Bacterial RNase P class A: a 390-nucleotide sequence from Mongoliitalea lutea.
RNA sequence: GAUGCAAGCCGAUCUGUCGCUGUCCCGUCUGACGGGAGAGAGGAAAGUCCGGGCAACAUAGAGCGCCAUACUUCCUAACGGGAAGGGGGCUUACUGGAGACGGUAAGUUCACAGAAAGUGCCACAGAAAAUAUACCGUCCCGAUAGCUAUCGGGAUAAGGGUGAAAAGGUGGGGUAAGAGCCCACCGGGUCCUUGGUGACAAGGAUUGCAUGGUAAACCUUAUGGGUUGAAAGACCAAAUAGGUCCUGCGCUGGAUUCAGUUCCAGAAAAGGCGGCUCGUCUUUGUGCAGGAUGGGUAGGUCGAUGGAGCCUUGGUGUGAAUCAAGGCCUAGAUAAAUGACAGAUGCCUCGCGAGAGGAACAGAACCCGGCUUACAGGCUUGCAUAUUCU
Numbered sequence: 001g002a003u004g005c006a007a008g009c010c011g012a013u014c015u016g017u018c019g020c021u022g023u024c025c026c027g028u029c030u031g032a033c034g035g036g037a038g039a040g041a042g043g044a045a046a047g048u049c050c051g052g053g054c055a056a057c058a059u060a061g062a063g064c065g066c067c068a069u070a071c072u073u074c075c076u077a078a079c080g081g082g083a084a085g086g087g088g089g090c091u092u093a094c095u096g097g098a099g100a101c102g103g104u105a106a107g108u109u110c111a112c113a114g115a116a117a118g119u120g121c122c123a124c125a126g127a128a129a130a131u132a133u134a135c136c137g138u139c140c141c142g143a144u145a146g147c148u149a150u151c152g153g154g155a156u157a158a159g160g161g162u163g164a165a166a167a168g169g170u171g172g173g174g175u176a177a178g179a180g181c182c183c184a185c186c187g188g189g190u191c192c193u194u195g196g197u198g199a200c201a202a203g204g205a206u207u208g209c210a211u212g213g214u215a216a217a218c219c220u221u222a223u224g225g226g227u228u229g230a231a232a233g234a235c236c237a238a239a240u241a242g243g244u245c246c247u248g249c250g251c252u253g254g255a256u257u258c259a260g261u262u263c264c265a266g267a268a269a270a271g272g273c274g275g276c277u278c279g280u281c282u283u284u285g286u287g288c289a290g291g292a293u294g295g296g297u298a299g300g301u302c303g304a305u306g307g308a309g310c311c312u313u314g315g316u317g318u319g320a321a322u323c324a325a326g327g328c329c330u331a332g333a334u335a336a337a338u339g340a341c342a343g344a345u346g347c348c349u350c351g352c353g354a355g356a357g358g359a360a361c362a363g364a365a366c367c368c369g370g371c372u373u374a375c376a377g378g379c380u381u382g383c384a385u386a387u388u389c390u
Base pairs, nucleotide, nucleotide: 002385003384004383005382006381007380008379009378010377011375012345013344014343015342016341017340018339020040021039023037024036025035026034027033028032045373046372047371049370050369051368052367053366054229055228056227057226061278062277063276064275066225067224068223069222070221071085072084073083074082075081086112087110088109089108090107091106092105093104094103095102096101113220114219118218119217120214121213122212135160136159137156138155139154140153141152142151143150144149168186169185170184171183172182173181187209188207189206190205191204192203193202194201195200233302234301235300236299243293244292245291246290247289248288269283270282271281272280273279309328310327311326312325313324314323315322316321
It is annotated as a ribozyme. Lineage of the source: Bacteria > Pseudomonadati > Bacteroidota > Cytophagales > Mongoliitalea. It scores 291 bits against the family's covariance model.